[Rfam]
RNA sequence: AUCAUCAAAUGAUGAAACUUGGAAUAUCUUAGGACACCUUCCUACAUAGCUUUAAUAGCUAUGGAUGAGAAUAGCGUUUCCGUUCUGAUGAUGAU
Numbered sequence: 001a002u003c004a005u006c007a008a009a010u011g012a013u014g015a016a017a018c019u020u021g022g023a024a025u026a027u028c029u030u031a032g033g034a035c036a037c038c039u040u041c042c043u044a045c046a047u048a049g050c051u052u053u054a055a056u057a058g059c060u061a062u063g064g065a066u067g068a069g070a071a072u073a074g075c076g077u078u079u080c081c082g083u084u085c086u087g088a089u090g091a092u093g094a095u
Base pairs, nucleotide, nucleotide: 001095002094003093004092005091006090007089042049043048
RNA: Small nucleolar RNA snoR31/Z110/Z27
Organism: Ricinus communis